The family of this 175-nucleotide sequence from Lysinibacillus sp. 2017 is "FMN riboswitch aptamer (RFN element)". Lineage of the source: Bacteria > Bacillota > Bacilli > Bacillaceae > Lysinibacillus. It scores 114 bits against the family's covariance model.
RNA sequence: AUUCAUCUUCGGGGCAGGGUGCAAUUCCCGAUCGGCGGUAAUAAAAGUGUCAACGACUGACCAUUUACUUGGAGGACGUUGCGUAAAAGCUUUUCGAGCCCGCGAGCCACUUUUGUGUGCAGGAUUUGGUGAAAUUCCAAAGCCGACAGUAUAGUCUGGAUGGGAGAAGAUGAAG
Numbered sequence: 001a002u003u004c005a006u007c008u009u010c011g012g013g014g015c016a017g018g019g020u021g022c023a024a025u026u027c028c029c030g031a032u033c034g035g036c037g038g039u040a041a042u043a044a045a046a047g048u049g050u051c052a053a054c055g056a057c058u059g060a061c062c063a064u065u066u067a068c069u070u071g072g073a074g075g076a077c078g079u080u081g082c083g084u085a086a087a088a089g090c091u092u093u094u095c096g097a098g099c100c101c102g103c104g105a106g107c108c109a110c111u112u113u114u115g116u117g118u119g120c121a122g123g124a125u126u127u128g129g130u131g132a133a134a135u136u137c138c139a140a141a142g143c144c145g146a147c148a149g150u151a152u153a154g155u156c157u158g159g160a161u162g163g164g165a166g167a168a169g170a171u172g173a174a175g
Stems, first nucleotide, its partner, number of pairs: 003173008017029003031155002033145002035103004108119001125141005147158003